[Rfam]
RNA: U1 spliceosomal RNA
RNA sequence: GAUCUUACCUGUUAGGUGAGAUGCCAUGAUCAUGAAGUUGGUUUUCCCAGGGUGAGUUCUACUCAUUGCACUCCAGAUGUGCUGACCCUGUGAUUUCCUCAAAUGUGGGAAACGCAGCGGCAUAAUUUGUGGCAGUGGGAACUGUAUCCACAUUAUCCCACG
Numbered sequence: 001g002a003u004c005u006u007a008c009c010u011g012u013u014a015g016g017u018g019a020g021a022u023g024c025c026a027u028g029a030u031c032a033u034g035a036a037g038u039u040g041g042u043u044u045u046c047c048c049a050g051g052g053u054g055a056g057u058u059c060u061a062c063u064c065a066u067u068g069c070a071c072u073c074c075a076g077a078u079g080u081g082c083u084g085a086c087c088c089u090g091u092g093a094u095u096u097c098c099u100c101a102a103a104u105g106u107g108g109g110a111a112a113c114g115c116a117g118c119g120g121c122a123u124a125a126u127u128u129g130u131g132g133c134a135g136u137g138g139g140a141a142c143u144g145u146a147u148c149c150a151c152a153u154u155a156u157c158c159c160a161c162g
Stems, first nucleotide, its partner, number of pairs: 013120001015118001016048001018046004023042004049089004056082002062079001063077002091116002094112003098108002136160004141156001144153002